[Rfam]
RNA sequence: UCUAGAACUCGAGAUAUGGGCUGAACGCUGAGCAGUGUGUAGGUUGCAGAACAAAUUCGGACUUCUCAGUUGUUGCUAUAAUUUAAACUUGAAAACGGUAUUUUUAAAUCUUGAACUCUGCAUGAAAGUUGUAGGCCUAUGUCUUACCUUUCCAUC
Numbered sequence: 001u002c003u004a005g006a007a008c009u010c011g012a013g014a015u016a017u018g019g020g021c022u023g024a025a026c027g028c029u030g031a032g033c034a035g036u037g038u039g040u041a042g043g044u045u046g047c048a049g050a051a052c053a054a055a056u057u058c059g060g061a062c063u064u065c066u067c068a069g070u071u072g073u074u075g076c077u078a079u080a081a082u083u084u085a086a087a088c089u090u091g092a093a094a095a096c097g098g099u100a101u102u103u104u105u106a107a108a109u110c111u112u113g114a115a116c117u118c119u120g121c122a123u124g125a126a127a128g129u130u131g132u133a134g135g136c137c138u139a140u141g142u143c144u145u146a147c148c149u150u151u152c153c154a155u156c
Base pairs, nucleotide, nucleotide: 003154005152006151007150009146011145012144013143014142015141016140017139018138019137020136021134022133023132025130027129028128029127035123036122037121041119042118043117045115048112049111051109054105055104060099062098063097072088073087074086

Description:
A member of the RNA family "MIR2912 microRNA precursor family" from Populus tomentosa, 156 nucleotides long. NCBI's taxonomy places the organism under Eukaryota, Viridiplantae, eudicotyledons, Saliceae, Populus. A search with the family's covariance model found it, with a score of 114 bits. Gene Ontology terms of the family: miRNA-mediated post-transcriptional gene silencing and RISC complex.